[Rfam]
RNA sequence: GAGAAGUAGCUGUAAAGCUCAGGAGGGAUAGCGCCAUGUCUCACCAGUACUAUGAAAUGUUUGUAUAUCUAUAUUGGCGCUAUCCAUCCUGAGUUCUAUGGCUUCUUCUU
Number, nucleotide and partner (000 for none) at each position: 001g000002a000003g000004a000005a000006g000007u000008a000009g000010c101011u000012g000013u000014a000015a000016a095017g094018c093019u092020c091021a090022g089023g088024a087025g000026g085027g084028a083029u082030a081031g080032c079033g078034c077035c076036a000037u000038g000039u000040c000041u000042c000043a000044c000045c000046a000047g000048u000049a000050c000051u000052a000053u000054g000055a000056a000057a000058u000059g000060u000061u000062u000063g000064u000065a000066u000067a000068u000069c000070u000071a000072u000073a000074u000075u000076g035077g034078c033079g032080c031081u030082a029083u028084c027085c026086a000087u024088c023089c022090u021091g020092a019093g018094u017095u016096c000097u000098a000099u000100g000101g010102c000103u000104u000105c000106u000107u000108c000109u000110u000

A member of the RNA family "MIR390 microRNA precursor family" from Brassica napus, 110 nucleotides long. The source organism's lineage runs through Eukaryota, Mesangiospermae, Gunneridae, Brassiceae and Brassica. On this family, see Gustafson et al., Nucleic Acids Res 2005: "ASRP: the Arabidopsis Small RNA Project Database". It scores 103 bits against the family's covariance model. Gene Ontology terms of the family: miRNA-mediated post-transcriptional gene silencing and RISC complex.